[Rfam]
RNA sequence: CGGAUAGCUCCGUGUUGGCGUCUGACCCCCCGACCCGACGUCAGCACGGGGCUCUAAC
Dot-bracket structure: ...(..((((((((((((((((..............))))))))))))))))..)...
The record is a 58-nucleotide RNA sequence from Mycolicibacterium rhodesiae, which matches "F6 TB sRNA" in Rfam. It scores 57 bits against the family's covariance model. NCBI's taxonomy places the organism under Bacteria, Actinomycetota, Actinomycetes, Mycobacteriales, Mycolicibacterium rhodesiae. By type it is a small RNA. A reference for the family is Arnvig and Young (2009), "Identification of small RNAs in Mycobacterium tuberculosis", Mol Microbiol.